[Rfam]
RNA sequence: AUGGCAGCAACAAGAAAGUGCUUAGGUUGAUUGAAUUUAUUUAAGCGCUGAUACAAUGCUGCCAGAACAAUUUAAAAGCCAAGAACAGUUCAGUUUAAUGGAGUUUAUAAACUGGUCUACACGUGUCCUUACAUUC
Numbered sequence: 001a002u003g004g005c006a007g008c009a010a011c012a013a014g015a016a017a018g019u020g021c022u023u024a025g026g027u028u029g030a031u032u033g034a035a036u037u038u039a040u041u042u043a044a045g046c047g048c049u050g051a052u053a054c055a056a057u058g059c060u061g062c063c064a065g066a067a068c069a070a071u072u073u074a075a076a077a078g079c080c081a082a083g084a085a086c087a088g089u090u091c092a093g094u095u096u097a098a099u100g101g102a103g104u105u106u107a108u109a110a111a112c113u114g115g116u117c118u119a120c121a122c123g124u125g126u127c128c129u130u131a132c133a134u135u136c
Base pairs, nucleotide, nucleotide: 004062005061006060007059008058009057017049018048019047020046021045022044023043024042025041026040028039029038030037078127080125081124087118088117090115091114092113093112094111095110096109097108
Notes
Drosophila small cajal body-specific RNA PsiU2-38.40.4: a 136-nucleotide RNA sequence from Drosophila rhopaloa. Rfam's curators put it in the seed alignment.